RNA sequence: AAAGCGGAAUCCGAAAAAGCUUGAAAAGAGUAGGAG
Dot-bracket structure: .((((....[[[......))))..........]]].
Numbered sequence: 001a002a003a004g005c006g007g008a009a010u011c012c013g014a015a016a017a018a019g020c021u022u023g024a025a026a027a028g029a030g031u032a033g034g035a036g
Stems, first nucleotide, its partner, number of pairs: 002022004010035003